Source information:
FMN riboswitch aptamer (RFN element): a 125-nucleotide RNA sequence from Dorea sp. CAG:105. It scores 118 bits against the family's covariance model. Pairs were carried over by alignment from the consensus structure, which is taken from published work.

RNA sequence: AAGAUUCUUCGGGGUCGGGUGAAAGUCCCAACCGGCGGUAUAGUCCGCGACCCGGUAUGAUAUGUACCGGCUGAAUCGGUGUAAUUCCGAUACCGACAGUAAAGUCUGGAUGAGAGAAGAGUUAU
Dot-bracket structure: ..((((((((......(((.......))).[[((((((....[[))))...((...............))....(((((.......)))))]])).(((....]]))).......))))))))..